[Rfam]
RNA sequence: UGCAAUGUAUCGCUGAAUCCUUAGUGCUAAGUAAGGAACGGGGGAACCAACGAGCUUACCGGCUCAUGGGGUGAAUCCUGAAAUUUCAGGUAGGGCGACUCUCACGCCCGAAUCCGGCAGCUAACCUCGUAAGCGUAUCGAGAGAGGCAAC
Numbered sequence: 001u002g003c004a005a006u007g008u009a010u011c012g013c014u015g016a017a018u019c020c021u022u023a024g025u026g027c028u029a030a031g032u033a034a035g036g037a038a039c040g041g042g043g044g045a046a047c048c049a050a051c052g053a054g055c056u057u058a059c060c061g062g063c064u065c066a067u068g069g070g071g072u073g074a075a076u077c078c079u080g081a082a083a084u085u086u087c088a089g090g091u092a093g094g095g096c097g098a099c100u101c102u103c104a105c106g107c108c109c110g111a112a113u114c115c116g117g118c119a120g121c122u123a124a125c126c127u128c129g130u131a132a133g134c135g136u137a138u139c140g141a142g143a144g145a146g147g148c149a150a151c
Stems, first nucleotide, its partner, number of pairs: 011135004018037006038130006048068002069115003077090004093109004
c-di-AMP riboswitch aptamer (ydaO/yuaA leader): a 151-nucleotide RNA from Paenibacillus sp. OAS669.
This family represents a conserved RNA structure found upstream of the ydaO and yuaA genes in Bacillus subtilis and related genes in other bacteria.
It scores 104 bits against the family's covariance model.
Lineage of the source: Bacteria > Bacillati > Bacillota > Caryophanales > Paenibacillus.